[Rfam]
RNA sequence: UGGCCAUUAUUUUGUGGACACUUUGAGUUACGAUAAUUACCAUGCUAAUUUACGAGAAUACAGUAACUCCUUACUAAGUGAUUUACUAUAACAUUAUCGUAAAUAUCACCGUGAGUUGUAAUAACACGAGUAUCGUAAAUGCAUAUUCAUGUUAUCGUAAAUUGGUACAAAUAUUAUCGUAAAUCAAUGUGACUAUAGAAUAAGUUAUUCUAUGGCCA
Numbered sequence: 001u002g003g004c005c006a007u008u009a010u011u012u013u014g015u016g017g018a019c020a021c022u023u024u025g026a027g028u029u030a031c032g033a034u035a036a037u038u039a040c041c042a043u044g045c046u047a048a049u050u051u052a053c054g055a056g057a058a059u060a061c062a063g064u065a066a067c068u069c070c071u072u073a074c075u076a077a078g079u080g081a082u083u084u085a086c087u088a089u090a091a092c093a094u095u096a097u098c099g100u101a102a103a104u105a106u107c108a109c110c111g112u113g114a115g116u117u118g119u120a121a122u123a124a125c126a127c128g129a130g131u132a133u134c135g136u137a138a139a140u141g142c143a144u145a146u147u148c149a150u151g152u153u154a155u156c157g158u159a160a161a162u163u164g165g166u167a168c169a170a171a172u173a174u175u176a177u178c179g180u181a182a183a184u185c186a187a188u189g190u191g192a193c194u195a196u197a198g199a200a201u202a203a204g205u206u207a208u209u210c211u212a213u214g215g216c217c218a
Stems, first nucleotide, its partner, number of pairs: 001218006007203011019191003023187002028182010043167011056156002060152003063148001065146001071138004078133003082129002084123002087120006094113001099107001

Overview:
Shown here is a 218-nucleotide RNA from Miscanthus lutarioriparius, a member of the family "MIR6217 microRNA precursor family". A search with the family's covariance model found it, with a score of 133 bits. Taxonomically the source falls in Miscanthus (Eukaryota, Tracheophyta, commelinids, Andropogoneae).